[Rfam]
RNA sequence: GGAUGUGAGGGCUGCAACAUCUGUCACCCCAUUGAUCACUAGAGUUGAUUUGGCUGAUCUUGUUGGCUAGGCAGAUAUUCCCUUCCUCCCUCACCACUCCAUGUGCAUCCCCCUGAAGCUGUGUGCUCGGUCAAAGAGGACAACCUUCCCCAAUAGAGACAUACCAUUCAUCAGUCAAGGGUAUAUGGUAGCUGCACUCACCUGCUAGAACCUCCAGACAAGCUCAAGGUCAAGUUGUAGGAGAACACAGGGUAGGCAGCUUCCAAGGCUGCAGACACAUCCAAGUGAGGCACUGCAUGAGGCAGCUUGCCAUUUUU
Numbered sequence: 001g002g003a004u005g006u007g008a009g010g011g012c013u014g015c016a017a018c019a020u021c022u023g024u025c026a027c028c029c030c031a032u033u034g035a036u037c038a039c040u041a042g043a044g045u046u047g048a049u050u051u052g053g054c055u056g057a058u059c060u061u062g063u064u065g066g067c068u069a070g071g072c073a074g075a076u077a078u079u080c081c082c083u084u085c086c087u088c089c090c091u092c093a094c095c096a097c098u099c100c101a102u103g104u105g106c107a108u109c110c111c112c113c114u115g116a117a118g119c120u121g122u123g124u125g126c127u128c129g130g131u132c133a134a135a136g137a138g139g140a141c142a143a144c145c146u147u148c149c150c151c152a153a154u155a156g157a158g159a160c161a162u163a164c165c166a167u168u169c170a171u172c173a174g175u176c177a178a179g180g181g182u183a184u185a186u187g188g189u190a191g192c193u194g195c196a197c198u199c200a201c202c203u204g205c206u207a208g209a210a211c212c213u214c215c216a217g218a219c220a221a222g223c224u225c226a227a228g229g230u231c232a233a234g235u236u237g238u239a240g241g242a243g244a245a246c247a248c249a250g251g252g253u254a255g256g257c258a259g260c261u262u263c264c265a266a267g268g269c270u271g272c273a274g275a276c277a278c279a280u281c282c283a284a285g286u287g288a289g290g291c292a293c294u295g296c297a298u299g300a301g302g303c304a305g306c307u308u309g310c311c312a313u314u315u316u317u
Stems, first nucleotide, its partner, number of pairs: 001090002005085001010082002016079002019076007027066002029062001031060001034059004039053002107162002110158001112156001113130004118126002131153001138149003191260003197255002201251004212243004218238004284317002287313001289311003293305004
RNA: 7SK RNA
Organism: Urocolius indicus